[Rfam]
RNA sequence: UUUUGUUCCACAUUCUUAAUACUCGGGUUGGCAAAGACCUUUCCAGGAGGCGCCUUUGUCAUCGGGGGUAUUAUGAAAUAUGGUCCAAAG
Numbered sequence: 001u002u003u004u005g006u007u008c009c010a011c012a013u014u015c016u017u018a019a020u021a022c023u024c025g026g027g028u029u030g031g032c033a034a035a036g037a038c039c040u041u042u043c044c045a046g047g048a049g050g051c052g053c054c055u056u057u058g059u060c061a062u063c064g065g066g067g068g069u070a071u072u073a074u075g076a077a078a079u080a081u082g083g084u085c086c087a088a089a090g
Stems, first nucleotide, its partner, number of pairs: 001090005008083003012079003015075001017073008027063001029061008038052001040050004